[Rfam]
RNA sequence: AAUAGAUAUGGGAAUGAAGUUCUCCCAUGGACUAUCCAAAAUUGCCUGUAGGCUGAUGACUUCUGUGUUGAC
Numbered sequence: 001a002a003u004a005g006a007u008a009u010g011g012g013a014a015u016g017a018a019g020u021u022c023u024c025c026c027a028u029g030g031a032c033u034a035u036c037c038a039a040a041a042u043u044g045c046c047u048g049u050a051g052g053c054u055g056a057u058g059a060c061u062u063c064u065g066u067g068u069u070g071a072c
Stems, first nucleotide, its partner, number of pairs: 010026004016063006044053003
The record is a 72-nucleotide RNA sequence from Blautia liquoris, which matches "Fluoride riboswitch aptamer (crcB RNA motif)" in Rfam. A reference for the family is Baker et al. (2012), "Widespread genetic switches and toxicity resistance proteins for fluoride", Science.